This 158-nucleotide sequence from Halalkalibacter akibai belongs to the Rfam family "glmS glucosamine-6-phosphate activated ribozyme aptamer".
RNA sequence: AACUAUUUAAAAGCGCCUGAACUACAUGAGAUGUAGUUGACGAGGAGAGGGAGUAUCGAUGGAUCGGCGGAUGCCCUCCGGUUGUAGCAUGACAACCGUUAGACUUCUGGGAAAACAAGGAGGCAACUCUUUGCACAAAAACAGAAGUAAGCAUGCCU
Numbered sequence: 001a002a003c004u005a006u007u008u009a010a011a012a013g014c015g016c017c018u019g020a021a022c023u024a025c026a027u028g029a030g031a032u033g034u035a036g037u038u039g040a041c042g043a044g045g046a047g048a049g050g051g052a053g054u055a056u057c058g059a060u061g062g063a064u065c066g067g068c069g070g071a072u073g074c075c076c077u078c079c080g081g082u083u084g085u086a087g088c089a090u091g092a093c094a095a096c097c098g099u100u101a102g103a104c105u106u107c108u109g110g111g112a113a114a115a116c117a118a119g120g121a122g123g124c125a126a127c128u129c130u131u132u133g134c135a136c137a138a139a140a141a142c143a144g145a146a147g148u149a150a151g152c153a154u155g156c157c158u
Stems, first nucleotide, its partner, number of pairs: 020038008047078005056067004079098006103148007116133007
The family's RNA type in Rfam is riboswitch. The organism belongs to Halalkalibacter akibai, within Bacteria. The base pairs follow the family's consensus structure, which is taken from published work.